This 130-nucleotide RNA sequence from Felis catus belongs to the Rfam family "Small nucleolar RNA SNORA11". Rfam describes the family as follows. U107 (SNORA11) is a member of the H/ACA class of snoRNAs that guide the sites of modification of uridines to pseudouridines. For this family Rfam cites "A novel experimental approach for systematic identification of box H/ACA snoRNAs from eukaryotes" (Gu et al., Nucleic Acids Res, 2005). Gene Ontology terms of the family: nucleolus and RNA processing. Rfam's curators put it in the seed alignment.
RNA sequence: GGGGUGUGAUCAGAGCAGGGGGCCUGAAGAAAUGGCUCUUCUGUUUACAACACACCCAACAGGAAUCUGGGUUCGUUGUGACAAGGGGCACAAACCUUGUGGCUUUCCUAUGAACAGAUACCCUACAUGU
Numbered sequence: 001g002g003g004g005u006g007u008g009a010u011c012a013g014a015g016c017a018g019g020g021g022g023c024c025u026g027a028a029g030a031a032a033u034g035g036c037u038c039u040u041c042u043g044u045u046u047a048c049a050a051c052a053c054a055c056c057c058a059a060c061a062g063g064a065a066u067c068u069g070g071g072u073u074c075g076u077u078g079u080g081a082c083a084a085g086g087g088g089c090a091c092a093a094a095c096c097u098u099g100u101g102g103c104u105u106u107c108c109u110a111u112g113a114a115c116a117g118a119u120a121c122c123c124u125a126c127a128u129g130u
Stems, first nucleotide, its partner, number of pairs: 002057007013046009022036003070123002073120001077116003082112002085105003089101005
Taxonomically the source falls in Felis (Eukaryota, Deuterostomia, Dipnotetrapodomorpha, Mammalia). Pairs were carried over by alignment from the consensus structure, which was predicted with RNAalifold.